[Rfam]
This 359-nucleotide part of an RNA from Halonotius sp. J07HN4 belongs to the Rfam family "Archaeal large subunit ribosomal RNA". Its family is annotated with structural constituent of ribosome and ribosome in the Gene Ontology. The organism belongs to Halonotius, within Archaea. The family's consensus secondary structure is taken from published work.
RNA sequence: CGGGCCCCAACCGGCGUUAGGGAAUUCGGCAAGUUAGUCCCGUACGUUCGCAAGAAGGGAUGCCUGCCUCCCGCGAGGCAGGUUGCAAUAACUCGGACGCUCCGACUGUCUAGUAACAACACAGGUGACCGCAAAUGCGCAAGCACUCGUACGGUCACUGAAUCCUGCCCAGUGCGGGUAUCUGAACACCUCGUACAAGAGGACGAAGGACCCGUUAACGGCGGGGGUAACUAUGACCCUCUUAAGGUAGCGUAGUACCUUGUCGCUUCAGUAGCGACUUGCAUGAAUGGAUCAACGAGAGCGUCACUGUCCCAACGCUGGCCCCGGUGAACUGUACGUUCCAGUGCGGAGUCUGGAGA
Numbered sequence: 001c002g003g004g005c006c007c008c009a010a011c012c013g014g015c016g017u018u019a020g021g022g023a024a025u026u027c028g029g030c031a032a033g034u035u036a037g038u039c040c041c042g043u044a045c046g047u048u049c050g051c052a053a054g055a056a057g058g059g060a061u062g063c064c065u066g067c068c069u070c071c072c073g074c075g076a077g078g079c080a081g082g083u084u085g086c087a088a089u090a091a092c093u094c095g096g097a098c099g100c101u102c103c104g105a106c107u108g109u110c111u112a113g114u115a116a117c118a119a120c121a122c123a124g125g126u127g128a129c130c131g132c133a134a135a136u137g138c139g140c141a142a143g144c145a146c147u148c149g150u151a152c153g154g155u156c157a158c159u160g161a162a163u164c165c166u167g168c169c170c171a172g173u174g175c176g177g178g179u180a181u182c183u184g185a186a187c188a189c190c191u192c193g194u195a196c197a198a199g200a201g202g203a204c205g206a207a208g209g210a211c212c213c214g215u216u217a218a219c220g221g222c223g224g225g226g227g228u229a230a231c232u233a234u235g236a237c238c239c240u241c242u243u244a245a246g247g248u249a250g251c252g253u254a255g256u257a258c259c260u261u262g263u264c265g266c267u268u269c270a271g272u273a274g275c276g277a278c279u280u281g282c283a284u285g286a287a288u289g290g291a292u293c294a295a296c297g298a299g300a301g302c303g304u305c306a307c308u309g310u311c312c313c314a315a316c317g318c319u320g321g322c323c324c325c326g327g328u329g330a331a332c333u334g335u336a337c338g339u340u341c342c343a344g345u346g347c348g349g350a351g352u353c354u355g356g357a358g359a
Base pairs, nucleotide, nucleotide: 001326002325003324004323011321012320013319014318015317016316017315018314020312021311022310037061038060039059040058041057046051062083063082064081065080066079067078068077069076070075084088096305097304098303099302100301101300102299103297104296107121108120109119124159125158126157127156128155129154130153131152132149136145137144138143162292163291164290165289167222168221169220172219173218174215175214176213177212178211181210182209183208189202190201191200192199223241224240225239226238227237228236242246262278263277264276265275266274267273340357341356342355343354344353